[Rfam]
RNA sequence: GUGACAUGAUGAACGUGUUUAUCCAUUCUCUGAGUGCUGCCGGCUCUGUCUCUCUGCGGCUUCUGCUGUCCGUUCUGGGCUGCAGGGUUACGGUUGCCUGUUUAUCCUCUGCUGGUUCAGUGUUCUACUGGAGCAGUGGUGGGAUGUUCAGAACAGCCGGUGUGGGGAGAUCAGACCAGCGCCAACAAAGACGAGCGGACUGUUCUGAUCAC
Numbered sequence: 001g002u003g004a005c006a007u008g009a010u011g012a013a014c015g016u017g018u019u020u021a022u023c024c025a026u027u028c029u030c031u032g033a034g035u036g037c038u039g040c041c042g043g044c045u046c047u048g049u050c051u052c053u054c055u056g057c058g059g060c061u062u063c064u065g066c067u068g069u070c071c072g073u074u075c076u077g078g079g080c081u082g083c084a085g086g087g088u089u090a091c092g093g094u095u096g097c098c099u100g101u102u103u104a105u106c107c108u109c110u111g112c113u114g115g116u117u118c119a120g121u122g123u124u125c126u127a128c129u130g131g132a133g134c135a136g137u138g139g140u141g142g143g144a145u146g147u148u149c150a151g152a153a154c155a156g157c158c159g160g161u162g163u164g165g166g167g168a169g170a171u172c173a174g175a176c177c178a179g180c181g182c183c184a185a186c187a188a189a190g191a192c193g194a195g196c197g198g199a200c201u202g203u204u205c206u207g208a209u210c211a212c
Stems, first nucleotide, its partner, number of pairs: 010211003014207001017204001019202001023198002026195003030190002034186002039180002042177001045175004049170002051167004056161002059089001061087006068080004092158005104145002106142001109139006116132007
Rfam assigns this 212-nucleotide sequence from Astyanax mexicanus to the family "Small nucleolar RNA SNORD17".
From the family's description: The snoRNA HBI-43 belongs to the C/D family of snoRNAs, guiding 2'O-ribose methylation at position U3797 of the 28S rRNA. Pseudouridylation in position U3797 is predicted to be guided by the H/ACA snoRNA ACA48.
Rfam classes the family as a C/D-box small nucleolar RNA.
The source organism's lineage runs through Eukaryota, Actinopteri, Clupeocephala, Otophysi and Astyanax.
The family has 19 seed sequences and 1,015 matches in Rfam 15.1.
For this family Rfam cites "RNomics: an experimental approach that identifies 201 candidates for novel, small, non-messenger RNAs in mouse" (Huttenhofer et al., EMBO J, 2001).
Rfam links the family to the GO terms RNA processing and nucleolus.
The family's consensus secondary structure was predicted with RNAalifold.